This 205-nucleotide sequence from Bradyrhizobium sp. LMTR 3 belongs to the Rfam family "Bradyrhizobiaceae sRNA BjrC174".

[Rfam]
RNA sequence: UUCACGGGAUCGUUAGCGGAAUCUUAUUGCUGCCCUACUUCCGCCAACCGUCCGCCCCGCUAAAUUGCGAAAAGAAAAUCCUGCGUUGGCCCGGUCCUUUCGGUUCCGGAUUCCUCAGCCCCCAGCCCCCCGGGGCCGUCGGGAUCGGGCCUGUUCGCAGGAGGGAGUUAAUCCCGAUACUGGGCCAACGAAAGUUGGUCCUUUU
Numbered sequence: 001u002u003c004a005c006g007g008g009a010u011c012g013u014u015a016g017c018g019g020a021a022u023c024u025u026a027u028u029g030c031u032g033c034c035c036u037a038c039u040u041c042c043g044c045c046a047a048c049c050g051u052c053c054g055c056c057c058c059g060c061u062a063a064a065u066u067g068c069g070a071a072a073a074g075a076a077a078a079u080c081c082u083g084c085g086u087u088g089g090c091c092c093g094g095u096c097c098u099u100u101c102g103g104u105u106c107c108g109g110a111u112u113c114c115u116c117a118g119c120c121c122c123c124a125g126c127c128c129c130c131c132g133g134g135g136c137c138g139u140c141g142g143g144a145u146c147g148g149g150c151c152u153g154u155u156c157g158c159a160g161g162a163g164g165g166a167g168u169u170a171a172u173c174c175c176g177a178u179a180c181u182g183g184g185c186c187a188a189c190g191a192a193a194g195u196u197g198g199u200c201c202u203u204u205u
Stems, first nucleotide, its partner, number of pairs: 035167002037051002080161006088151011101138009118126002182201008

The base pairs follow the family's consensus structure. On this family, see Madhugiri et al., RNA Biol 2012: "Small RNAs of the Bradyrhizobium/Rhodopseudomonas lineage and their analysis". Rfam classes the family as a small RNA.